[Rfam]
A member of the RNA family "Bacteroidales small SRP" from Flexibacter flexilis, 103 nucleotides long. By type it is a non-coding RNA gene. The source organism's lineage runs through Bacteria, Bacteroidota, Cytophagales, Flexibacteraceae and Flexibacter flexilis. The base pairs follow the family's consensus structure, which is taken from published work. Clan: SRP clan.
RNA sequence: UUUGUGACGGCAAAUCGGUACGACCAGCUCCUGUUGAAUGCCCCAGGGUCGGAAGACAGCAAGGAUGUGCGGUUGUAGCGGUGCGAUACAGGUUUGCCUUUUU
Numbered sequence: 001u002u003u004g005u006g007a008c009g010g011c012a013a014a015u016c017g018g019u020a021c022g023a024c025c026a027g028c029u030c031c032u033g034u035u036g037a038a039u040g041c042c043c044c045a046g047g048g049u050c051g052g053a054a055g056a057c058a059g060c061a062a063g064g065a066u067g068u069g070c071g072g073u074u075g076u077a078g079c080g081g082u083g084c085g086a087u088a089c090a091g092g093u094u095u096g097c098c099u100u101u102u103u
Stems, first nucleotide, its partner, number of pairs: 009098008018089003021085002023082002